Rfam assigns this 50-nucleotide RNA from Thioclava dalianensis to the family "SAM/SAH riboswitch aptamer". The match comes from Rfam's covariance-model search (54 bits). The organism belongs to Thioclava, within Bacteria. A reference for the family is Weickhmann et al. (2019), "The structure of the SAM/SAH-binding riboswitch", Nucleic Acids Res. Gene Ontology terms of the family: regulation of gene expression and S-adenosylmethionine metabolic process.
RNA sequence: GAACCGUUCCAACGGCUUCCUGACGGAACGGGGUUUUCAACAACGGAGCA
Number, nucleotide and partner (000 for none) at each position: 001g000002a000003a000004c031005c030006g029007u028008u027009c026010c025011a000012a000013c022014g021015g049016c048017u047018u000019c046020c045021u014022g013023a000024c000025g010026g009027a008028a007029c006030g005031g004032g000033g000034u000035u000036u000037u000038c000039a000040a000041c000042a000043a000044c000045g020046g019047a017048g016049c015050a000